[Rfam]
RNA sequence: AUACUUAGCUGGCAGGGGAGAUUCCAUGAUCACAAGGUGGUUUUCCCAGGCGAGGCUUAUCCAUUGCACUCUGGAUGUGCUAAACCCUGCGAUUUCCCCAAAUGUGGGAAACUCGACUGCAUAAUUUGUGGUAGUGGGGUCUGCAUUCAUACUUUCCCCUG
Numbered sequence: 001a002u003a004c005u006u007a008g009c010u011g012g013c014a015g016g017g018g019a020g021a022u023u024c025c026a027u028g029a030u031c032a033c034a035a036g037g038u039g040g041u042u043u044u045c046c047c048a049g050g051c052g053a054g055g056c057u058u059a060u061c062c063a064u065u066g067c068a069c070u071c072u073g074g075a076u077g078u079g080c081u082a083a084a085c086c087c088u089g090c091g092a093u094u095u096c097c098c099c100a101a102a103u104g105u106g107g108g109a110a111a112c113u114c115g116a117c118u119g120c121a122u123a124a125u126u127u128g129u130g131g132u133a134g135u136g137g138g139g140u141c142u143g144c145a146u147u148c149a150u151a152c153u154u155u156c157c158c159c160u161g
Stems, first nucleotide, its partner, number of pairs: 012120004016047006024040004049086002054081003058077005090115003093111003097107002136159004143152001145150001

The record is a 161-nucleotide RNA from Cricetulus griseus, which matches "U1 spliceosomal RNA" in Rfam. Rfam classes the family as a spliceosomal small nuclear RNA. About the family: U1 is a small nuclear RNA (snRNA) component of the spliceosome (involved in pre-mRNA splicing). A reference for the family is Oubridge et al. (1994), "Crystal structure at 1.92 A resolution of the RNA-binding domain of the U1A spliceosomal protein complexed with an RNA hairpin", Nature. Gene Ontology terms of the family: mRNA 5'-splice site recognition, U1 snRNP and pre-mRNA 5'-splice site binding. The match comes from Rfam's covariance-model search (131 bits).